[Rfam]
RNA sequence: AAGUUUAAUACGUUACUAUUUCGUAUAACCUCAAAAAUAUGGUUUGGGGGUUUCUACAAGGCACCGUAAAAGACCUGGCUACGAAAAAUAUUCCUAAAGGG
Numbered sequence: 001a002a003g004u005u006u007a008a009u010a011c012g013u014u015a016c017u018a019u020u021u022c023g024u025a026u027a028a029c030c031u032c033a034a035a036a037a038u039a040u041g042g043u044u045u046g047g048g049g050g051u052u053u054c055u056a057c058a059a060g061g062c063a064c065c066g067u068a069a070a071a072g073a074c075c076u077g078g079c080u081a082c083g084a085a086a087a088a089u090a091u092u093c094c095u096a097a098a099g100g101g
Base pairs, nucleotide, nucleotide: 019086020085021084022083023082024081025080029049030048031047032046033045034044035043059076060075061074062072

Notes
Shown here is a 101-nucleotide RNA sequence from Anaerobacillus alkalidiazotrophicus, a member of the family "Purine riboswitch aptamer". NCBI's taxonomy places the organism under Bacteria, Bacilli, Caryophanales, Bacillaceae, Anaerobacillus. Pairs were carried over by alignment from the consensus structure, which is taken from published work. A search with the family's covariance model found it, with a score of 69 bits. Riboswitches are metabolite binding domains within certain messenger RNAs that serve as precision sensors for their corresponding targets.